Overview
The record is a 103-nucleotide RNA from Paenibacillus sp. NFR01, which matches "Purine riboswitch aptamer" in Rfam. A search with the family's covariance model found it, with a score of 56 bits. The base pairs follow the family's consensus structure, which is taken from published work. The organism belongs to Paenibacillus, within Bacteria.
RNA sequence: ACAACCGAACAGUGAAGCUCUUGUAUAAGCUCGAUAAUGGGAUCGGGCGUUUCGACCAGGCGACCGUAAAUUGCCCCAGGCUACGAGAGGUAAGCGACGAGAA
Numbered sequence: 001a002c003a004a005c006c007g008a009a010c011a012g013u014g015a016a017g018c019u020c021u022u023g024u025a026u027a028a029g030c031u032c033g034a035u036a037a038u039g040g041g042a043u044c045g046g047g048c049g050u051u052u053c054g055a056c057c058a059g060g061c062g063a064c065c066g067u068a069a070a071u072u073g074c075c076c077c078a079g080g081c082u083a084c085g086a087g088a089g090g091u092a093a094g095c096g097a098c099g100a101g102a103a
Stems, first nucleotide, its partner, number of pairs: 018089008029048007057079001059075005